[Rfam]
RNA sequence: CAACGUGAAACAUCUACCCAUAAUGGCAGGAGCGGGGGAACCAAUUUUUGGCUCCCUUAUAGGGGGCCUAGGGGCUAAGCUACUUCGGUAGCCGGGUGAAUCCAUACCCGAGUCCGACAGCUCACCUCGUGAAGCAAUGGAGGAAACAU
Numbered sequence: 001c002a003a004c005g006u007g008a009a010a011c012a013u014c015u016a017c018c019c020a021u022a023a024u025g026g027c028a029g030g031a032g033c034g035g036g037g038g039a040a041c042c043a044a045u046u047u048u049u050g051g052c053u054c055c056c057u058u059a060u061a062g063g064g065g066g067c068c069u070a071g072g073g074g075c076u077a078a079g080c081u082a083c084u085u086c087g088g089u090a091g092c093c094g095g096g097u098g099a100a101u102c103c104a105u106a107c108c109c110g111a112g113u114c115c116g117a118c119a120g121c122u123c124a125c126c127u128c129g130u131g132a133a134g135c136a137a138u139g140g141a142g143g144a145a146a147c148a149u
Stems, first nucleotide, its partner, number of pairs: 011134001013132002018030002032130006042071001072115003080091004094109004
This 149-nucleotide sequence from Rothia aeria belongs to the Rfam family "c-di-AMP riboswitch aptamer (ydaO/yuaA leader)". The organism belongs to Rothia, within Bacteria. A search with the family's covariance model found it, with a score of 52 bits.